The family of this 82-nucleotide RNA sequence from Dichanthelium oligosanthes is "Small nucleolar RNA U54". The literature on the family includes a 2003 paper in Nucleic Acids Res by Chen et al., "The high diversity of snoRNAs in plants: identification and comparative study of 120 snoRNA genes from Oryza sativa". U54 is a C/D box small nucleolar RNA, which acts as a methylation guide for 18S ribosomal RNA in plants. The family's consensus secondary structure was predicted with PFOLD. By type it is a C/D-box small nucleolar RNA. Its family is annotated with RNA processing and nucleolus in the Gene Ontology. Lineage of the source: Eukaryota > Euphyllophyta > Mesangiospermae > Panicodae > Dichanthelium.
[Rfam]
RNA sequence: ACCUCAAUGAUUUCUACGAGUCACUCUGGUUAUAUACGCUAUUCUGAUUGCAGCUGCUGAAAAAGUAGUAUUUAUGAGAGUU
Numbered sequence: 001a002c003c004u005c006a007a008u009g010a011u012u013u014c015u016a017c018g019a020g021u022c023a024c025u026c027u028g029g030u031u032a033u034a035u036a037c038g039c040u041a042u043u044c045u046g047a048u049u050g051c052a053g054c055u056g057c058u059g060a061a062a063a064a065g066u067a068g069u070a071u072u073u074a075u076g077a078g079a080g081u082u
Base pairs, nucleotide, nucleotide: 001082003080004079005078